This 71-nucleotide sequence from Bactrocera dorsalis belongs to the Rfam family "mir-2 microRNA precursor family". Rfam links the family to the GO terms miRNA-mediated post-transcriptional gene silencing and RISC complex. The literature on the family includes a 2001 paper in Science by Lee and Ambros, "An extensive class of small RNAs in Caenorhabditis elegans".
RNA sequence: CAACUCUUCAAGAUGUUGUGAAAUGUUUUCAAGCAACUCUAUUCAUAUCACAGCCAUUUUGAUGAGUUUCG
Numbered sequence: 001c002a003a004c005u006c007u008u009c010a011a012g013a014u015g016u017u018g019u020g021a022a023a024u025g026u027u028u029u030c031a032a033g034c035a036a037c038u039c040u041a042u043u044c045a046u047a048u049c050a051c052a053g054c055c056a057u058u059u060u061g062a063u064g065a066g067u068u069u070c071g
Stems, first nucleotide, its partner, number of pairs: 005065002008062007015054007024047003